[Rfam]
RNA sequence: UUGUUUGCGGGUGUUGCAUCACCAAGAUUCACAUGCAAAUGCUUGCCCGAUGAUAUAUGUUACAAUUUUUUUUAUAAAAAAAACAUAUCUUUCUUCUUUCUGGUCGUCUGCCAAAGUUCUUUGGAAGUGAGAAUCUUGAUGAUGCUGCAUCGGCAAUAAA
Numbered sequence: 001u002u003g004u005u006u007g008c009g010g011g012u013g014u015u016g017c018a019u020c021a022c023c024a025a026g027a028u029u030c031a032c033a034u035g036c037a038a039a040u041g042c043u044u045g046c047c048c049g050a051u052g053a054u055a056u057a058u059g060u061u062a063c064a065a066u067u068u069u070u071u072u073u074a075u076a077a078a079a080a081a082a083a084c085a086u087a088u089c090u091u092u093c094u095u096c097u098u099u100c101u102g103g104u105c106g107u108c109u110g111c112c113a114a115a116g117u118u119c120u121u122u123g124g125a126a127g128u129g130a131g132a133a134u135c136u137u138g139a140u141g142a143u144g145c146u147g148c149a150u151c152g153g154c155a156a157u158a159a160a
Stems, first nucleotide, its partner, number of pairs: 010151005016145006023138008032129002
Notes:
This 160-nucleotide sequence from Populus tomentosa belongs to the Rfam family "mir-172 microRNA precursor family". The base pairs follow the family's consensus structure, which was predicted with PFOLD. Rfam 15.1 lists 2,076 matches to the family in 219 species. Its family is annotated with RISC complex and miRNA-mediated post-transcriptional gene silencing in the Gene Ontology. mir-172 has been experimentally verified in Arabidopsis thaliana. This family is thought to target mRNAs coding for APETALA2-like transcription factors. The mature sequence is excised from the 3' arm of the hairpin. On this family, see Jones-Rhoades and Bartel, Mol Cell 2004: "Computational Identification of Plant MicroRNAs and Their Targets, Including a Stress-Induced miRNA".